[Rfam]
RNA sequence: CUCCACAGCUACUGGUCUGCAACUGUUCAGAAUUGUAGCAGUUGCAGUAUUCCCUCUGUGGAAAAUAAACUGUUACACAGGAUUAAGCUACUUCUCAGAUCCUCUGAAAAAGACUUCCUGUGUAACAAACAACA
Numbered sequence: 001c002u003c004c005a006c007a008g009c010u011a012c013u014g015g016u017c018u019g020c021a022a023c024u025g026u027u028c029a030g031a032a033u034u035g036u037a038g039c040a041g042u043u044g045c046a047g048u049a050u051u052c053c054c055u056c057u058g059u060g061g062a063a064a065a066u067a068a069a070c071u072g073u074u075a076c077a078c079a080g081g082a083u084u085a086a087g088c089u090a091c092u093u094c095u096c097a098g099a100u101c102c103u104c105u106g107a108a109a110a111a112g113a114c115u116u117c118c119u120g121u122g123u124a125a126c127a128a129a130c131a132a133c134a
Stems, first nucleotide, its partner, number of pairs: 003061004017047009075123005089113001092110002095107003
Rfam assigns this 134-nucleotide RNA from Nestor notabilis to the family "Small nucleolar RNA SNORA41".
Rfam 15.1 lists 676 matches to the family in 522 species.
ACA41 is a member of the H/ACA class of snoRNA that guide the sites of modification of uridines to pseudouridines.
A reference for the family is Huttenhofer et al. (2001), "RNomics: an experimental approach that identifies 201 candidates for novel, small, non-messenger RNAs in mouse", EMBO J.
The match comes from Rfam's covariance-model search (105 bits).